RNA sequence: GGGAAGUGAUGAGUGGUAAAAAGCUCGCAAUUAAAAAUGCGAGAUGGGUGCCUGCCUAGCCCGUUACGACAACUGGGCACUCCCUUCUUCACUUAUCUACCCAUUCCC
Numbered sequence: 001g002g003g004a005a006g007u008g009a010u011g012a013g014u015g016g017u018a019a020a021a022a023g024c025u026c027g028c029a030a031u032u033a034a035a036a037a038u039g040c041g042a043g044a045u046g047g048g049u050g051c052c053u054g055c056c057u058a059g060c061c062c063g064u065u066a067c068g069a070c071a072a073c074u075g076g077g078c079a080c081u082c083c084c085u086u087c088u089u090c091a092c093u094u095a096u097c098u099a100c101c102c103a104u105u106c107c108c
Base pairs, nucleotide, nucleotide: 001108002107003106004105014099015098016097017095018094024043025042026041027040028039046082047081048080049079050078051077052076061075063073064072

The family of this 108-nucleotide RNA is "Small nucleolar RNA Z279/snoR105/snoR108". About the family: This family includes the plant snoRNAs known as Z279, snoR105 and snoR108. Gene Ontology terms of the family: nucleolus and RNA processing. By type it is a C/D-box small nucleolar RNA.